[Rfam]
RNA sequence: UUGGUCCUGGUUCACGGGAGCGCGCCGCGCGCCGACCCAGCACC
Number, nucleotide and partner (000 for none) at each position: 001u000002u000003g044004g043005u042006c000007c040008u039009g038010g037011u000012u000013c000014a000015c034016g033017g032018g000019a000020g030021c029022g028023c027024g000025c000026c000027g023028c022029g021030c020031g000032c017033c016034g015035a000036c000037c010038c009039a008040g007041c000042a005043c004044c003